[Rfam]
RNA sequence: GCUUUCAACAUCCCCGUUCCAAGAUGAAGCUGACGAAAGGCAGGUUUGUCGCGGCUUAUCUGGAGCUGAAAGC
Numbered sequence: 001g002c003u004u005u006c007a008a009c010a011u012c013c014c015c016g017u018u019c020c021a022a023g024a025u026g027a028a029g030c031u032g033a034c035g036a037a038a039g040g041c042a043g044g045u046u047u048g049u050c051g052c053g054g055c056u057u058a059u060c061u062g063g064a065g066c067u068g069a070a071a072g073c
Stems, first nucleotide, its partner, number of pairs: 001073007016066006027057006034051003
Shown here is a 73-nucleotide RNA, a member of the family "nadA riboswitch".
The literature on the family includes a 2020 paper in RNA by Huang et al., "Structure and ligand binding of the ADP-binding domain of the NAD(+) riboswitch".
It is one of the family's seed sequences.